This 153-nucleotide sequence from Rothia sp. ZJ932 belongs to the Rfam family "FMN riboswitch aptamer (RFN element)".
Lineage of the source: Bacteria > Bacillati > Actinomycetes > Micrococcales > Rothia.
Rfam describes the family as follows. The RFN element is a highly conserved domain that is found frequently in the 5'-untranslated regions of prokaryotic mRNAs that encode for flavin mononucleotide (FMN) biosynthesis and transport proteins.
It scores 88 bits against the family's covariance model.
RNA sequence: AUCGUGCUCCGGGACGGGGUGAGAUUCCCAACCGGCGGUGAUAGUCCGCUAACUACUCGGUAUCAACUUCAUCUUUUAGGGGUUUGGUAGCAGGUGGCCUGAUCGGUGAAAUUCCGAUACCGACAGUACAGUCUGGAUGGAAGGUAGCACGAG
Numbered sequence: 001a002u003c004g005u006g007c008u009c010c011g012g013g014a015c016g017g018g019g020u021g022a023g024a025u026u027c028c029c030a031a032c033c034g035g036c037g038g039u040g041a042u043a044g045u046c047c048g049c050u051a052a053c054u055a056c057u058c059g060g061u062a063u064c065a066a067c068u069u070c071a072u073c074u075u076u077u078a079g080g081g082g083u084u085u086g087g088u089a090g091c092a093g094g095u096g097g098c099c100u101g102a103u104c105g106g107u108g109a110a111a112u113u114c115c116g117a118u119a120c121c122g123a124c125a126g127u128a129c130a131g132u133c134u135g136g137a138u139g140g141a142a143g144g145u146a147g148c149a150c151g152a153g
Stems, first nucleotide, its partner, number of pairs: 003151006009144002017029003031132002033122002035049004044120002053097005102118005124135003
Its family is annotated with FMN binding in the Gene Ontology.